[Rfam]
Shown here is a 67-nucleotide sequence from Pipistrellus kuhlii, a member of the family "mir-9256 microRNA precursor family". Rfam links the family to the GO terms RISC complex and miRNA-mediated post-transcriptional gene silencing. It scores 80 bits against the family's covariance model. The source organism's lineage runs through Eukaryota, Opisthokonta, Craniata, Gnathostomata and Pipistrellus. The family's consensus secondary structure was predicted with RNAalifold.
RNA sequence: AUAUAUAUGGAGUGGCCAGAUUGUUAUGAUCUCUGAACGCAUAACAAUCUGGCCACUCAGUGUAUAU
Number, nucleotide and partner (000 for none) at each position: 001a000002u000003a000004u064005a063006u062007a061008u060009g000010g058011a057012g056013u055014g054015g053016c052017c051018a000019g049020a048021u047022u046023g045024u044025u043026a042027u041028g040029a000030u000031c000032u000033c000034u000035g000036a000037a000038c000039g000040c028041a027042u026043a025044a024045c023046a022047a021048u020049c019050u000051g017052g016053c015054c014055a013056c012057u011058c010059a000060g008061u007062g006063u005064a004065u000066a000067u000